A member of the RNA family "Glycine riboswitch aptamer" from Peptoclostridium litorale, 134 nucleotides long. The source organism's lineage runs through Bacteria, Clostridia, Peptostreptococcales, Peptoclostridiaceae and Peptoclostridium litorale. A search with the family's covariance model found it, with a score of 50 bits. Rfam describes the family as follows. This family represents the bacterial glycine riboswitch. Glycine riboswitches usually consist of two metabolite-binding aptamers domains with similar structures in tandem. The aptamers cooperatively bind glycine to regulate the expression of downstream genes. In Bacillus subtilis, this riboswitch is found upstream of the gcvT operon which controls glycine degradation.

RNA sequence: CCUCUGGAGAGACUCUAGUGAGCGCCGAAGGAGCAAACAGGAAUAUAUGCACUUAUGAAUGUAUUUAAUAUGAUGCAUUCACCAUUCAGUAUACUGCAUAUGAACUGUGAAACUCUCAGGCAAAAGGACAGGGG
Numbered sequence: 001c002c003u004c005u006g007g008a009g010a011g012a013c014u015c016u017a018g019u020g021a022g023c024g025c026c027g028a029a030g031g032a033g034c035a036a037a038c039a040g041g042a043a044u045a046u047a048u049g050c051a052c053u054u055a056u057g058a059a060u061g062u063a064u065u066u067a068a069u070a071u072g073a074u075g076c077a078u079u080c081a082c083c084a085u086u087c088a089g090u091a092u093a094c095u096g097c098a099u100a101u102g103a104a105c106u107g108u109g110a111a112a113c114u115c116u117c118a119g120g121c122a123a124a125a126g127g128a129c130a131g132g133g134g
Stems, first nucleotide, its partner, number of pairs: 001134006013022003024121003027117002031115003037108004